[Rfam]
The record is a 183-nucleotide RNA, which matches "malK-I RNA" in Rfam.
RNA sequence: CCCGGUGAAGUGCGUCUACUCCACUAUUCUAGGCGUAUUUCGCUAAAUUUAAGGAGGAUAAAUCCGUCUGACUUACGGUGCGGCAGUGUGGAGACCUGUCGUAGUGCUUCCGGAAUUUUGCUUUCCGGCAGCGAGGACGCGCGCGAAAAUGGUAGGCGCGUCUAGAGUCAAGAAAGUAUGGCA
Numbered sequence: 001c002c003c004g005g006u007g008a009a010g011u012g013c014g015u016c017u018a019c020u021c022c023a024c025u026a027u028u029c030u031a032g033g034c035g036u037a038u039u040u041c042g043c044u045a046a047a048u049u050u051a052a053g054g055a056g057g058a059u060a061a062a063u064c065c066g067u068c069u070g071a072c073u074u075a076c077g078g079u080g081c082g083g084c085a086g087u088g089u090g091g092a093g094a095c096c097u098g099u100c101g102u103a104g105u106g107c108u109u110c111c112g113g114a115a116u117u118u119u120g121c122u123u124u125c126c127g128g129c130a131g132c133g134a135g136g137a138c139g140c141g142c143g144c145g146a147a148a149a150u151g152g153u154a155g156g157c158g159c160g161u162c163u164a165g166a167g168u169c170a171a172g173a174a175a176g177u178a179u180g181g182c183a
Stems, first nucleotide, its partner, number of pairs: 006042013064078004069170006079103008088095002106132003110128005135163008
Dot-bracket structure: .....(((((((((((((...........))))))))))))).....................[[[[.((((((]]]]((((((((.((....))))))))))..(((.(((((.........))))).)))..((((((((.............)))))))).)))))).............
Rfam's curators put it in the seed alignment.